Nucleotides: 135
Base pairs, nucleotide, nucleotide: 003057016044018042019041020040021039022038023037024036025035026034067128068127069126070125072124073123085112086111087110088109089108091106092105
Number, partner (000 for none) and nucleotide at each position: 001000c002000u003057g004000c005000a006000a007000a008000u009000a010000u011000u012000c013000c014000u015000g016044c017000u018042g019041u020040u021039c022038u023037g024036a025035u026034u027000u028000u029000g030000u031000c032000a033000u034026g035025a036024u037023c038022a039021g040020g041019g042018c043000c044016g045000g046000c047000u048000c049000c050000a051000u052000a053000u054000u055000c056000a057003c058000u059000a060000u061000a062000u063000u064000g065000a066000g067128a068127c069126c070125a071000g072124g073123c074000g075000u076000g077000a078000u079000g080000u081000g082000g083000c084000c085112c086111c087110g088109g089108a090000g091106c092105u093000c094000a095000u096000u097000c098000u099000u100000u101000c102000c103000c104000u105092a106091g107000g108089u109088c110087u111086g112085g113000u114000u115000u116000u117000a118000u119000a120000a121000a122000u123073g124072c125070u126069g127068g128067u129000g130000a131000u132000a133000a134000a135000c